[Rfam]
RNA sequence: CCGUCCCGCUCCUCGGAACGGCCGGAACAGUCGGGCGCCCGGCGGCUACCCUGGUCGGGUGCGCCGCCCCCACGGGUGGUGCAAAGCCGACAGCCGUCGCACCCCAGGGAGCAUUUCCAUG
Numbered sequence: 001c002c003g004u005c006c007c008g009c010u011c012c013u014c015g016g017a018a019c020g021g022c023c024g025g026a027a028c029a030g031u032c033g034g035g036c037g038c039c040c041g042g043c044g045g046c047u048a049c050c051c052u053g054g055u056c057g058g059g060u061g062c063g064c065c066g067c068c069c070c071c072a073c074g075g076g077u078g079g080u081g082c083a084a085a086g087c088c089g090a091c092a093g094c095c096g097u098c099g100c101a102c103c104c105c106a107g108g109g110a111g112c113a114u115u116u117c118c119a120u121g
Stems, first nucleotide, its partner, number of pairs: 060083004065078004086100002089098003
This 121-nucleotide RNA sequence from Streptomycetaceae bacterium MP113-05 belongs to the Rfam family "Streptomyces-metH RNA". The family's RNA type in Rfam is small RNA. Lineage of the source: Bacteria > Bacillati > Actinomycetota > Actinomycetes > Streptomycetaceae. The match comes from Rfam's covariance-model search (93 bits).